The family of this 129-nucleotide RNA sequence from Aotus nancymaae is "U11 spliceosomal RNA". Taxonomically the source falls in Aotus (Eukaryota, Opisthokonta, Mammalia, Eutheria).
[Rfam]
RNA sequence: AAGAAGGUUGCUGUUGUGAGUGAUACAUGCAGGGCAACUUGAUUGCUCUUAGUGCAGAAUUGAAAACAAGAAAUUUUGGAAAUAAUAAUUUUUUGGUGGUUGGAUUGCUGGUUGUAUUAGUCCAUUCUC
Number, nucleotide and partner (000 for none) at each position: 001a000002a000003g000004a000005a000006g000007g000008u082009u081010g000011c079012u025013g024014u023015u022016g021017u000018g000019a000020g000021u016022g015023a014024u013025a012026c054027a053028u052029g000030c000031a049032g048033g047034g046035c045036a044037a043038c000039u000040u000041g000042a000043u037044u036045g035046c034047u033048c032049u031050u000051a000052g028053u027054g026055c078056a077057g076058a075059a074060u073061u072062g000063a000064a000065a000066a000067c000068a000069a000070g000071a000072a061073a060074u059075u058076u057077u056078g055079g011080a000081a009082a008083u000084a000085a000086u000087a000088a000089u000090u000091u000092u000093u000094u000095g000096g000097u000098g000099g000100u000101u000102g000103g129104a128105u000106u000107g126108c000109u124110g123111g122112u000113u000114g000115u119116a000117u000118u000119a115120g000121u000122c111123c110124a109125u000126u107127c000128u104129c103